Shown here is a 130-nucleotide RNA from Molossus molossus, a member of the family "Small nucleolar RNA SNORA38". The family has 25 seed sequences and 628 matches in Rfam 15.1. NCBI's taxonomy places the organism under Eukaryota, Eumetazoa, Mammalia, Chiroptera, Molossus.

RNA sequence: CCCUCCUCCAAAGGCGUGUCUGUGGUCCCCUGUCUUUGGACACGUACGAAUUGGAGGCCAAGAAAGUGGAUGUGGAGAAGCCUGGAGCCAGCUUGUUCCUUGCAGGCUCGAGGUCAACCAUCCCACAUAG
Numbered sequence: 001c002c003c004u005c006c007u008c009c010a011a012a013g014g015c016g017u018g019u020c021u022g023u024g025g026u027c028c029c030c031u032g033u034c035u036u037u038g039g040a041c042a043c044g045u046a047c048g049a050a051u052u053g054g055a056g057g058c059c060a061a062g063a064a065a066g067u068g069g070a071u072g073u074g075g076a077g078a079a080g081c082c083u084g085g086a087g088c089c090a091g092c093u094u095g096u097u098c099c100u101u102g103c104a105g106g107c108u109c110g111a112g113g114u115c116a117a118c119c120a121u122c123c124c125a126c127a128u129a130g
Stems, first nucleotide, its partner, number of pairs: 002057005015044007024030002068123003090108007